[Rfam]
RNA sequence: AUAAUGAUACUCCCGUCUUGAACGCGUCACUGCAUUGGGCGGUUGCGUAAGACCUACGCAGAGGGUGAAAGUCCCGUGA
Numbered sequence: 001a002u003a004a005u006g007a008u009a010c011u012c013c014c015g016u017c018u019u020g021a022a023c024g025c026g027u028c029a030c031u032g033c034a035u036u037g038g039g040c041g042g043u044u045g046c047g048u049a050a051g052a053c054c055u056a057c058g059c060a061g062a063g064g065g066u067g068a069a070a071g072u073c074c075c076g077u078g079a
Stems, first nucleotide, its partner, number of pairs: 012076001013042006043061003047057003063075003
Dot-bracket structure: ...........(((((((..................))))))(((.(((.....))).))).(((.......))))...
RNA: pemK RNA